Mammalian CPEB3 ribozyme: a 75-nucleotide sequence from Crocodylus porosus.
RNA sequence: GUUGCAAAUUUGGGGCCGUAGCAGAAGAGCUCACGUGUGGCCGUGUCGGAUUCCAGCAAAUCUGCAAAUUCUGCU
Numbered sequence: 001g002u003u004g005c006a007a008a009u010u011u012g013g014g015g016c017c018g019u020a021g022c023a024g025a026a027g028a029g030c031u032c033a034c035g036u037g038u039g040g041c042c043g044u045g046u047c048g049g050a051u052u053c054c055a056g057c058a059a060a061u062c063u064g065c066a067a068a069u070u071c072u073g074c075u
Base pairs, nucleotide, nucleotide: 014042015041016040017039020075021074022073023072024071025070026069027038047064048063049062050061051060052059
Its family is annotated with RNA nuclease activity in the Gene Ontology. The mammalian CPEB3 ribozyme is a self cleaving RNA located in the second intron of the CPEB3 gene which belongs to a family of genes regulating messenger RNA polyadenylation. The match comes from Rfam's covariance-model search (39 bits).